This 127-nucleotide RNA from Thinocorus orbignyianus belongs to the Rfam family "Small nucleolar RNA SNORA63".
[Rfam]
RNA sequence: AAGCAGGAAAGUUAUAAUAUAGCUGUGUGGUGCUGUAUUAUCGUUCCCCCUGCUUAAAGCAAACUGGUUCCUUCUAUCCCUGCCUGUCCAGCUCCCACGGCAGGUGGGGACGCUGGGUUUCAGACAU
Numbered sequence: 001a002a003g004c005a006g007g008a009a010a011g012u013u014a015u016a017a018u019a020u021a022g023c024u025g026u027g028u029g030g031u032g033c034u035g036u037a038u039u040a041u042c043g044u045u046c047c048c049c050c051u052g053c054u055u056a057a058a059g060c061a062a063a064c065u066g067g068u069u070c071c072u073u074c075u076a077u078c079c080c081u082g083c084c085u086g087u088c089c090a091g092c093u094c095c096c097a098c099g100g101c102a103g104g105u106g107g108g109g110a111c112g113c114u115g116g117g118u119u120u121c122a123g124a125c126a127u
Stems, first nucleotide, its partner, number of pairs: 003053005014041010079108004084103004
Dot-bracket structure: ..(((((......((((((((((........)))))))))).......))))).........................((((.((((............)))).))))...................
Notes:
It scores 109 bits against the family's covariance model. E3 belongs to the H/ACA class of snoRNAs and is involved in the processing of eukaryotic pre-rRNA and has regions of complementarity to 18S rRNA. E3 is encoded in introns in the gene for protein synthesis initiation factor 4AII. By type it is an H/ACA-box small nucleolar RNA. A reference for the family is Mishra and Eliceiri (1997), "Three small nucleolar RNAs that are involved in ribosomal RNA precursor processing", Proc Natl Acad Sci U S A. Pairs were carried over by alignment from the consensus structure, which was predicted with PFOLD.